[Rfam]
RNA sequence: UAGACAGAUUAUUGUAUUCGACUAUACUCACAGCGUGAAAUAGGGAAUUACAUUAUUUUUAAACGGGAAGUGAAUCAAUUAACAUAAUAGACUCCU
Numbered sequence: 001u002a003g004a005c006a007g008a009u010u011a012u013u014g015u016a017u018u019c020g021a022c023u024a025u026a027c028u029c030a031c032a033g034c035g036u037g038a039a040a041u042a043g044g045g046a047a048u049u050a051c052a053u054u055a056u057u058u059u060u061a062a063a064c065g066g067g068a069a070g071u072g073a074a075u076c077a078a079u080u081a082a083c084a085u086a087a088u089a090g091a092c093u094c095c096u
Stems, first nucleotide, its partner, number of pairs: 003094002009090007017082002020080002023077001026075001028073004034065003037059007
RNA: MIR6152 microRNA precursor family